[Rfam]
RNA sequence: UGCAAGUGAUGCUUUUUCUCACGAUGGUCUUCCAAACCUUUAGGGUUCUGACGACAAUGCCUUUUGGCAACACUGAUGCAACAUC
Numbered sequence: 001u002g003c004a005a006g007u008g009a010u011g012c013u014u015u016u017u018c019u020c021a022c023g024a025u026g027g028u029c030u031u032c033c034a035a036a037c038c039u040u041u042a043g044g045g046u047u048c049u050g051a052c053g054a055c056a057a058u059g060c061c062u063u064u065u066g067g068c069a070a071c072a073c074u075g076a077u078g079c080a081a082c083a084u085c
Stems, first nucleotide, its partner, number of pairs: 001080004
Dot-bracket structure: ((((........................................................................)))).....
The record is an 85-nucleotide RNA from Poecilia formosa, which matches "Small nucleolar RNA SNORD35" in Rfam.
From the family's description: U35 is a C/D box snoRNA located in intron 6 of ribosomal protein L13A and intron 3 of ribosomal protein S11 in humans and at homologous positions in mouse and chicken ribosomal protein genes. U35 guides the methylation of 2'-O-ribose sites in 28S rRNA.
Rfam classes the family as a C/D-box small nucleolar RNA.
Clan: SNORD35 clan.
Taxonomically the source falls in Poecilia (Eukaryota, Metazoa, Deuterostomia, Ovalentaria).
Rfam links the family to the GO terms nucleolus and RNA processing.
On this family, see Nicoloso et al., J Mol Biol 1996: "Intron-encoded, antisense small nucleolar RNAs: the characterization of nine novel species points to their direct role as guides for the 2'-O-ribose methylation of rRNAs".